[Rfam]
RNA sequence: AGCACCUUUAAUUCAGUCCCGUGAGACUGGCAAGGUUACGUGAACCGAGGUUCACCGCAUGACACUCGUAUAUUCGUAUACGUGUCGUUGAUGGGCGUCCUCUUAUUCAAUCCAAUAGCUAUUGGAUUGAAUAACGAAGUAAACUCCUUGCCUUUAGGGCAAGGAGUUUUUUUGUA
Numbered sequence: 001a002g003c004a005c006c007u008u009u010a011a012u013u014c015a016g017u018c019c020c021g022u023g024a025g026a027c028u029g030g031c032a033a034g035g036u037u038a039c040g041u042g043a044a045c046c047g048a049g050g051u052u053c054a055c056c057g058c059a060u061g062a063c064a065c066u067c068g069u070a071u072a073u074u075c076g077u078a079u080a081c082g083u084g085u086c087g088u089u090g091a092u093g094g095g096c097g098u099c100c101u102c103u104u105a106u107u108c109a110a111u112c113c114a115a116u117a118g119c120u121a122u123u124g125g126a127u128u129g130a131a132u133a134a135c136g137a138a139g140u141a142a143a144c145u146c147c148u149u150g151c152c153u154u155u156a157g158g159g160c161a162a163g164g165a166g167u168u169u170u171u172u173u174g175u176a
Base pairs, nucleotide, nucleotide: 004036005035006034007033008032013030014029015028016027017026018025103134104133105132106131107130108129109128110127111126112125113124114123115122116121139171141169142168143167144166145165146164147163148162149161150160151159152158
Shown here is a 176-nucleotide RNA sequence from Paenibacillus crassostreae, a member of the family "PyrR binding site". The base pairs follow the family's consensus structure, which is taken from published work. The match comes from Rfam's covariance-model search (64 bits). Lineage of the source: Bacteria > Bacillota > Bacilli > Caryophanales > Paenibacillus. This family represents the PyrR binding site and terminator structure. This RNA structure is found upstream of a variety of genes involved in pyrimidine biosynthesis and transport. The alignment also includes a portion of the antiterminator structure.